[Rfam]
RNA sequence: UAACCACAUACGCUGAAUUCUAUUGAAACGGGGGAACCACUUUUCGGAAAGCAGAAAGCUUCCUGGGGUGAAUCCUUUUGGAAGGGCGACUCUUACCGCCCUAACCCGACAGCUAACCCCGUAAGCGUUGUAGGAGAAGGGAA
Numbered sequence: 001u002a003a004c005c006a007c008a009u010a011c012g013c014u015g016a017a018u019u020c021u022a023u024u025g026a027a028a029c030g031g032g033g034g035a036a037c038c039a040c041u042u043u044u045c046g047g048a049a050a051g052c053a054g055a056a057a058g059c060u061u062c063c064u065g066g067g068g069u070g071a072a073u074c075c076u077u078u079u080g081g082a083a084g085g086g087c088g089a090c091u092c093u094u095a096c097c098g099c100c101c102u103a104a105c106c107c108g109a110c111a112g113c114u115a116a117c118c119c120c121g122u123a124a125g126c127g128u129u130g131u132a133g134g135a136g137a138a139g140g141g142a143a
Stems, first nucleotide, its partner, number of pairs: 011127004018027003028122006038065002066107003074081002084101004
RNA: c-di-AMP riboswitch aptamer (ydaO/yuaA leader)